[Rfam]
RNA sequence: AUGGCUUAAACUUAUGAGUGGGGAAAAUAAUGAUUCUGAAUGACGCCUGAAUCCUCAGUGCUAAUGUGAGAAGCAUUUUUGAGUGGGUAAAAGUUGCCAGUAGGGUGACCCGCCUGCUUUGCGGGGUGCCUUGGAGUUGCAAUUUGCCUG
Numbered sequence: 001a002u003g004g005c006u007u008a009a010a011c012u013u014a015u016g017a018g019u020g021g022g023g024a025a026a027a028u029a030a031u032g033a034u035u036c037u038g039a040a041u042g043a044c045g046c047c048u049g050a051a052u053c054c055u056c057a058g059u060g061c062u063a064a065u066g067u068g069a070g071a072a073g074c075a076u077u078u079u080u081g082a083g084u085g086g087g088u089a090a091a092a093g094u095u096g097c098c099a100g101u102a103g104g105g106u107g108a109c110c111c112g113c114c115u116g117c118u119u120u121g122c123g124g125g126g127u128g129c130c131u132u133g134g135a136g137u138u139g140c141a142a143u144u145u146g147c148c149u150g
Stems, first nucleotide, its partner, number of pairs: 005022004032053005038047001054070004084150005091145007101133001103131005109125005
Dot-bracket structure: ....((((..........)))).........(((((.(........).)))))((((.........)))).............(((((..(((((((...(.(((((.(((((.......))))).))))).).....))))))))))))
Shown here is a 150-nucleotide sequence from Suricata suricatta, a member of the family "U12 minor spliceosomal RNA". The base pairs follow the family's consensus structure. Gene Ontology terms of the family: mRNA branch site recognition, U12 snRNP and pre-mRNA branch point binding. A search with the family's covariance model found it, with a score of 107 bits. The family is grouped with related families in Rfam's "U2 clan".